[Rfam]
RNA sequence: CUAGAUGAGGACUGUUUCAUUUCUGCCCGGAACCACCAAGUCUUGGGCGGAAAAAAUAAAAAAACCGACUGUCAUGUCGGUUUUUUUAU
Numbered sequence: 001c002u003a004g005a006u007g008a009g010g011a012c013u014g015u016u017u018c019a020u021u022u023c024u025g026c027c028c029g030g031a032a033c034c035a036c037c038a039a040g041u042c043u044u045g046g047g048c049g050g051a052a053a054a055a056a057u058a059a060a061a062a063a064a065c066c067g068a069c070u071g072u073c074a075u076g077u078c079g080g081u082u083u084u085u086u087u088a089u
Stems, first nucleotide, its partner, number of pairs: 021052001023050006030042002059086011
Dot-bracket structure: ....................(.((((((.((.........))..)))))).)......(((((((((((......)))))))))))...
Shown here is an 89-nucleotide sequence from Escherichia coli, a member of the family "ArsR-gov region gene B".
By type it is an antisense RNA.
NCBI's taxonomy places the organism under Bacteria, Pseudomonadati, Enterobacteriaceae, Escherichia, Escherichia coli.
arsR-gov region gene B is transcribed opposite of dinQ (translates into a toxic single transmembrane peptide) with 30 complimentary nucleotides. AgrB appears to repress accumulation of dinQ by RNA interference and counteracts its toxicity.
For this family Rfam cites "Single transmembrane peptide DinQ modulates membrane-dependent activities" (Weel-Sneve et al., PLoS Genet, 2013).
The family has 4 seed sequences and 51 matches in Rfam 15.1.